[Rfam]
RNA sequence: GGGCUGGCUUUAGCUCAGCCGUUCAUUCGACAGUGUUUUAACAACUUCUUUGCGGAGGCAGAGCGGUUAGAGACCCGGGGGAGCUCUCCAGCCCUUAA
Numbered sequence: 001g002g003g004c005u006g007g008c009u010u011u012a013g014c015u016c017a018g019c020c021g022u023u024c025a026u027u028c029g030a031c032a033g034u035g036u037u038u039u040a041a042c043a044a045c046u047u048c049u050u051u052g053c054g055g056a057g058g059c060a061g062a063g064c065g066g067u068u069a070g071a072g073a074c075c076c077g078g079g080g081g082a083g084c085u086c087u088c089c090a091g092c093c094c095u096u097a098a
Stems, first nucleotide, its partner, number of pairs: 002093006014081003019077001021075001026072003030068001
The record is a 98-nucleotide sequence from Prolemur simus, which matches "Vault RNA" in Rfam. About the family: This family of RNAs are found as part of the enigmatic vault ribonucleoprotein complex. The complex consists of a major vault protein (MVP), two minor vault proteins (VPARP and TEP1), and several small untranslated RNA molecules. It has been suggested that the vault complex is involved in drug resistance. The organism belongs to Prolemur, within Eukaryota. A search with the family's covariance model found it, with a score of 49 bits.